[Rfam]
This 80-nucleotide sequence from Sulfurovum sp. AR belongs to the Rfam family "c-di-GMP-I riboswitch aptamer". The base pairs follow the family's consensus structure, which is taken from published work.
RNA sequence: AAAGUAUUAGGCCAAACCUGUUGUGAAGCAGGGACGGAAAGCUUCAGGUCUUUUGAAAAGAAGAUAGCUGGGUUGCAUUU
Numbered sequence: 001a002a003a004g005u006a007u008u009a010g011g012c013c014a015a016a017c018c019u020g021u022u023g024u025g026a027a028g029c030a031g032g033g034a035c036g037g038a039a040a041g042c043u044u045c046a047g048g049u050c051u052u053u054u055g056a057a058a059a060g061a062a063g064a065u066a067g068c069u070g071g072g073u074u075g076c077a078u079u080u
Stems, first nucleotide, its partner, number of pairs: 012037002017032006040074004045070003048065007